[Rfam]
JUMPstart RNA: a 38-nucleotide sequence from Shewanella algae. It scores 43 bits against the family's covariance model. NCBI's taxonomy places the organism under Bacteria, Pseudomonadati, Gammaproteobacteria, Alteromonadales, Shewanella. Pairs were carried over by alignment from the consensus structure, which is taken from published work.
RNA sequence: GGGCAGUUUGGAGGCCGAAAUCCAUGGGCGGUAGCGUG
Numbered sequence: 001g002g003g004c005a006g007u008u009u010g011g012a013g014g015c016c017g018a019a020a021u022c023c024a025u026g027g028g029c030g031g032u033a034g035c036g037u038g
Base pairs, nucleotide, nucleotide: 009024010023011022012021